[Rfam]
RNA sequence: AACUUAUCAAGAGCGACUGAGGGAACAGGCCCUGUGAAGUCCAGCAACCUCCUAUAUGGAACGGUGCUAAAUCCUGCAGAAUGAUGUCAUUCUGGAAGAUAAGGC
Numbered sequence: 001a002a003c004u005u006a007u008c009a010a011g012a013g014c015g016a017c018u019g020a021g022g023g024a025a026c027a028g029g030c031c032c033u034g035u036g037a038a039g040u041c042c043a044g045c046a047a048c049c050u051c052c053u054a055u056a057u058g059g060a061a062c063g064g065u066g067c068u069a070a071a072u073c074c075u076g077c078a079g080a081a082u083g084a085u086g087u088c089a090u091u092c093u094g095g096a097a098g099a100u101a102a103g104g105c
Base pairs, nucleotide, nucleotide: 003103004102005101006100007099008098013042015041016040017039021032022031023030026076027075028074029073043068044067045066046065048064049063050060051059052058072097077094078093079092080091081090082089

A member of the RNA family "SAM riboswitch aptamer (S box leader)" from Paenisporosarcina antarctica, 105 nucleotides long.